[Rfam]
Shown here is a 399-nucleotide sequence from Pseudoflavitalea sp. G-6-1-2, a member of the family "Bacterial RNase P class A". The organism belongs to Pseudoflavitalea, within Bacteria. It is annotated as a ribozyme.
RNA sequence: ACUACAAACCGGGUUAUCGCUAUGCCGCAAGGCAGAGAGGAAAGUCCGGACAACACAGAGCAAUGCACCGGUUAAGCGCCGGGUCCGUAGCUGAUUGUACAUGCGAUCCCUGCGGAACAGAUAGUGCCACAGAAAAUAACUGCCCUGCGCAAGCAGAGGUAAAGGUGAAAACGUGGGGUAAGAGCCCACGGCGGUGCCGGGUAAUCGGCAUCGGGGGUAAACCUUGCAUGUUGAAAUGCCAUGUAUACCAAUCAAUGAAGUUGCUCGCUUCGUUCACGCAAGUGAAGAUUGGGUGGGUAGGCAGCUAGAGCCGUUCAGUAAUGGGCGGCGCAGAUAAAUGAUAGCCAUGUUUUCCGAAAGGAAUGCAUACAGGAUCCGGCUUACAGGUUUGUAGUUGAA
Numbered sequence: 001a002c003u004a005c006a007a008a009c010c011g012g013g014u015u016a017u018c019g020c021u022a023u024g025c026c027g028c029a030a031g032g033c034a035g036a037g038a039g040g041a042a043a044g045u046c047c048g049g050a051c052a053a054c055a056c057a058g059a060g061c062a063a064u065g066c067a068c069c070g071g072u073u074a075a076g077c078g079c080c081g082g083g084u085c086c087g088u089a090g091c092u093g094a095u096u097g098u099a100c101a102u103g104c105g106a107u108c109c110c111u112g113c114g115g116a117a118c119a120g121a122u123a124g125u126g127c128c129a130c131a132g133a134a135a136a137u138a139a140c141u142g143c144c145c146u147g148c149g150c151a152a153g154c155a156g157a158g159g160u161a162a163a164g165g166u167g168a169a170a171a172c173g174u175g176g177g178g179u180a181a182g183a184g185c186c187c188a189c190g191g192c193g194g195u196g197c198c199g200g201g202u203a204a205u206c207g208g209c210a211u212c213g214g215g216g217g218u219a220a221a222c223c224u225u226g227c228a229u230g231u232u233g234a235a236a237u238g239c240c241a242u243g244u245a246u247a248c249c250a251a252u253c254a255a256u257g258a259a260g261u262u263g264c265u266c267g268c269u270u271c272g273u274u275c276a277c278g279c280a281a282g283u284g285a286a287g288a289u290u291g292g293g294u295g296g297g298u299a300g301g302c303a304g305c306u307a308g309a310g311c312c313g314u315u316c317a318g319u320a321a322u323g324g325g326c327g328g329c330g331c332a333g334a335u336a337a338a339u340g341a342u343a344g345c346c347a348u349g350u351u352u353u354c355c356g357a358a359a360g361g362a363a364u365g366c367a368u369a370c371a372g373g374a375u376c377c378g379g380c381u382u383a384c385a386g387g388u389u390u391g392u393a394g395u396u397g398a399a
Stems, first nucleotide, its partner, number of pairs: 001395010011384001012346007020037002023034004042382003046379005051233004060279002063229005068082005083118001084116007119224002124222002126218003140164002142160003146155003172190006192214001193212008237303004247294003251290001273286005310329008